Annotation: A member of the RNA family "Small nucleolar RNA snoR31/Z110/Z27" from Corchorus capsularis, 100 nucleotides long.

[Rfam]
Nucleotides: 100
Base pairs, nucleotide, nucleotide: 001100002099003098004097005096006095007094043050044049
Number, partner (000 for none) and nucleotide at each position: 001100g002099u003098c004097g005096u006095c007094a008000a009000g010000u011000g012000a013000u014000g015000a016000a017000g018000u019000u020000g021000g022000a023000a024000a025000u026000a027000a028000u029000c030000u031000u032000a033000g034000g035000a036000c037000a038000c039000c040000u041000u042000c043050c044049u045000a046000c047000a048000u049044a050043g051000c052000u053000u054000u055000u056000u057000u058000a059000a060000a061000g062000c063000u064000a065000u066000g067000g068000a069000u070000g071000a072000g073000a074000a075000a076000a077000a078000c079000a080000u081000u082000u083000c084000c085000u086000a087000u088000a089000u090000c091000u092000g093000a094007u095006g096005a097004u098003g099002a100001c
From the family's description: This family contains several related snoRNAs including R31, Z27 and Z110. Lineage of the source: Eukaryota > Viridiplantae > Spermatophyta > Pentapetalae > Corchorus. The family's RNA type in Rfam is C/D-box small nucleolar RNA. For this family Rfam cites "Identification of 66 box C/D snoRNAs in Arabidopsis thaliana: extensive gene duplications generated multiple isoforms predicting new ribosomal RNA 2'-O-methylation sites" (Barneche et al., J Mol Biol, 2001).